[Rfam]
RNA: Small nucleolar RNA SNORD73
RNA sequence: AAUAAGUGAUGACAAAAUGUUUCGGUCCCAGAUGAUGUUCGAUGAUAAUACGUAACAUUUUUCUGAUGUU
Numbered sequence: 001a002a003u004a005a006g007u008g009a010u011g012a013c014a015a016a017a018u019g020u021u022u023c024g025g026u027c028c029c030a031g032a033u034g035a036u037g038u039u040c041g042a043u044g045a046u047a048a049u050a051c052g053u054a055a056c057a058u059u060u061u062u063c064u065g066a067u068g069u070u
Stems, first nucleotide, its partner, number of pairs: 001070004